[Rfam]
RNA sequence: CGUCGUCAUCAAGAGUCGGGCUGACGCCCGCACCAACCUGCCUCCCGGGGCAAGGUGGUCUGCCAAGUGCGAUGCGGCCCUCACGGGCAACCAAGCCGGCAAGC
Numbered sequence: 001c002g003u004c005g006u007c008a009u010c011a012a013g014a015g016u017c018g019g020g021c022u023g024a025c026g027c028c029c030g031c032a033c034c035a036a037c038c039u040g041c042c043u044c045c046c047g048g049g050g051c052a053a054g055g056u057g058g059u060c061u062g063c064c065a066a067g068u069g070c071g072a073u074g075c076g077g078c079c080c081u082c083a084c085g086g087g088c089a090a091c092c093a094a095g096c097c098g099g100c101a102a103g104c
Base pairs, nucleotide, nucleotide: 007074008073009072010071015031017030018029019028020027021026032059033058034057037055038054039053040051041050042049045099046098047097048096077088078087079086080085
Notes
The record is a 104-nucleotide sequence from Quisquiliibacterium transsilvanicum, which matches "SAM-I/IV (S-adenosyl methionine) riboswitch aptamer" in Rfam. The base pairs follow the family's consensus structure, which is taken from published work. The match comes from Rfam's covariance-model search (66 bits). Taxonomically the source falls in Quisquiliibacterium (Bacteria, Pseudomonadati, Pseudomonadota, Burkholderiales).